[Rfam]
RNA sequence: GCAUGGUUAUGGAUUUAUGGUGGGGCCUGUAUGUGGCUUCCUCAUAGUGUAUCCCAUGCUAGAACAAACUUCUGCUCCGAACCAUUGGCAGGUGUUAAUCUGUGUGCCUGAUCCACUGAAGAGAGCAGUACAGCU
Numbered sequence: 001g002c003a004u005g006g007u008u009a010u011g012g013a014u015u016u017a018u019g020g021u022g023g024g025g026c027c028u029g030u031a032u033g034u035g036g037c038u039u040c041c042u043c044a045u046a047g048u049g050u051a052u053c054c055c056a057u058g059c060u061a062g063a064a065c066a067a068a069c070u071u072c073u074g075c076u077c078c079g080a081a082c083c084a085u086u087g088g089c090a091g092g093u094g095u096u097a098a099u100c101u102g103u104g105u106g107c108c109u110g111a112u113c114c115a116c117u118g119a120a121g122a123g124a125g126c127a128g129u130a131c132a133g134c135u
Stems, first nucleotide, its partner, number of pairs: 001059004005054002008051001015047006022040003026035001072128006083118002088113001090109006
The record is a 135-nucleotide RNA from Xenopus laevis, which matches "Small nucleolar RNA SNORA42/SNORA80 family" in Rfam. Rfam's curators write: The members of this family belong to the H/ACA class of snoRNAs that guide the sites of modification of uridines to pseudouridines.